[Rfam]
RNA sequence: CGCUGUUCCUCCACUCGGAUCGUCCGGCACGUUCCUGCCGGUGGAAAGGAAGUC
Numbered sequence: 001c002g003c004u005g006u007u008c009c010u011c012c013a014c015u016c017g018g019a020u021c022g023u024c025c026g027g028c029a030c031g032u033u034c035c036u037g038c039c040g041g042u043g044g045a046a047a048g049g050a051a052g053u054c
Stems, first nucleotide, its partner, number of pairs: 007048001010045004024041006
RNA: msiK RNA
Organism: Paractinoplanes rishiriensis